The family of this 592-nucleotide part of an RNA from an uncultured Verrucomicrobiota bacterium is "Bacterial large subunit ribosomal RNA".
Gene Ontology terms of the family: ribosome and structural constituent of ribosome.
RNA sequence: AAACAGAUGGCACAUGAUGGAUGCCUUGGCGUUGAUAGGCGAUAACGGACGCGACAAGCUGCGAUAAGCCAUGGAUAGCGGCAAAUACGCUUUAACACAUGGAUCUCCUAUGGGGUAACCCGAGGGCUCAGCCCUCAUCCUGCCUUUUACAGGCAGUGAAGCGACACUCGGUGAAGUGAAACAUCUCAGUAACCGAAGGAAAAGAAAGCGAAAGCGAUCCUGUGUGUAGCGGCGAGCGAAAGCAGGACAGCCCAAACCGGCGUUAAACCCGGGGUUGUAGGACCAGGCAUAAGCGAUGUGAUCAGGUUGGUUCAAAAGGCUGGAAAGCCUUCCGAUACCGGGUGAAAGGCCCUUAAACCGACUCGGCCCACAUUGCGCCUGGCUCCUGAGUAACGCGACAUAAGUGAAACUUCGCGUGAAUCAGCGCGGACCACCGCGUAAGGCUAAAUACUCAUCAACGACCGAUAGUGAACAAGUACCGCGAGGGAAAGGUGAAAAGAACCGCUACAAGCGGAGUGAAAUAGAUCCUGAAAUCAUGUGUCUACAAGGUGUCAAAGCCCUUCGGGGCGAUGGCGUGCCUUUUGCUUAAUGA
Numbered sequence: 001a002a003a004c005a006g007a008u009g010g011c012a013c014a015u016g017a018u019g020g021a022u023g024c025c026u027u028g029g030c031g032u033u034g035a036u037a038g039g040c041g042a043u044a045a046c047g048g049a050c051g052c053g054a055c056a057a058g059c060u061g062c063g064a065u066a067a068g069c070c071a072u073g074g075a076u077a078g079c080g081g082c083a084a085a086u087a088c089g090c091u092u093u094a095a096c097a098c099a100u101g102g103a104u105c106u107c108c109u110a111u112g113g114g115g116u117a118a119c120c121c122g123a124g125g126g127c128u129c130a131g132c133c134c135u136c137a138u139c140c141u142g143c144c145u146u147u148u149a150c151a152g153g154c155a156g157u158g159a160a161g162c163g164a165c166a167c168u169c170g171g172u173g174a175a176g177u178g179a180a181a182c183a184u185c186u187c188a189g190u191a192a193c194c195g196a197a198g199g200a201a202a203a204g205a206a207a208g209c210g211a212a213a214g215c216g217a218u219c220c221u222g223u224g225u226g227u228a229g230c231g232g233c234g235a236g237c238g239a240a241a242g243c244a245g246g247a248c249a250g251c252c253c254a255a256a257c258c259g260g261c262g263u264u265a266a267a268c269c270c271g272g273g274g275u276u277g278u279a280g281g282a283c284c285a286g287g288c289a290u291a292a293g294c295g296a297u298g299u300g301a302u303c304a305g306g307u308u309g310g311u312u313c314a315a316a317a318g319g320c321u322g323g324a325a326a327g328c329c330u331u332c333c334g335a336u337a338c339c340g341g342g343u344g345a346a347a348g349g350c351c352c353u354u355a356a357a358c359c360g361a362c363u364c365g366g367c368c369c370a371c372a373u374u375g376c377g378c379c380u381g382g383c384u385c386c387u388g389a390g391u392a393a394c395g396c397g398a399c400a401u402a403a404g405u406g407a408a409a410c411u412u413c414g415c416g417u418g419a420a421u422c423a424g425c426g427c428g429g430a431c432c433a434c435c436g437c438g439u440a441a442g443g444c445u446a447a448a449u450a451c452u453c454a455u456c457a458a459c460g461a462c463c464g465a466u467a468g469u470g471a472a473c474a475a476g477u478a479c480c481g482c483g484a485g486g487g488a489a490a491g492g493u494g495a496a497a498a499g500a501a502c503c504g505c506u507a508c509a510a511g512c513g514g515a516g517u518g519a520a521a522u523a524g525a526u527c528c529u530g531a532a533a534u535c536a537u538g539u540g541u542c543u544a545c546a547a548g549g550u551g552u553c554a555a556a557g558c559c560c561u562u563c564g565g566g567g568c569g570a571u572g573g574c575g576u577g578c579c580u581u582u583u584g585c586u587u588a589a590u591g592a
Base pairs, nucleotide, nucleotide: 009542010541011540012539013538014537015536016535017534023528024492025491028463029462030460031459032458033457034456035455036454037452038451039162040161047108048107049106050063051062052061069102070101071100072099073098078090079089080088112121113120114119122136123135124134125133126132127131138159139158140156141155142154143153144152145151167198168196169195170194171193172192178185179184208215209214218448219246220245221244222243223242229237230236249445250444251443252442257272258271259270260269279387280386281385284381285380286379287378288377296373297372298371299370300369303366305364306363310358311357312356316331317330318329319328320327334338340352341351342350393417394416395415396414397413398412401409424439425438426437427436428435479486480485502514503513504512505511551574552573553572554571557568558567559566560565578591580589